[Rfam]
RNA sequence: CUUGCAGCAAUCUCUAACUUGCUUGGUAUAGAUCGGGAUUUGCUUUGCCUAAAAACAGUAUUUAUGUUUUCUCCAAUGAGUCAGAUCCCAUCUUGCAUCAAGCAAGUUGGAGACUGCAGUGCAU
Numbered sequence: 001c002u003u004g005c006a007g008c009a010a011u012c013u014c015u016a017a018c019u020u021g022c023u024u025g026g027u028a029u030a031g032a033u034c035g036g037g038a039u040u041u042g043c044u045u046u047g048c049c050u051a052a053a054a055a056c057a058g059u060a061u062u063u064a065u066g067u068u069u070u071c072u073c074c075a076a077u078g079a080g081u082c083a084g085a086u087c088c089c090a091u092c093u094u095g096c097a098u099c100a101a102g103c104a105a106g107u108u109g110g111a112g113a114c115u116g117c118a119g120u121g122c123a124u
Stems, first nucleotide, its partner, number of pairs: 013111002017107004023101005029095003035089004040084002
MIR168 microRNA precursor family: a 124-nucleotide RNA from Actinidia chinensis.
The source organism's lineage runs through Eukaryota, Viridiplantae, Streptophytina, Actinidia and Actinidia chinensis.
The match comes from Rfam's covariance-model search (67 bits).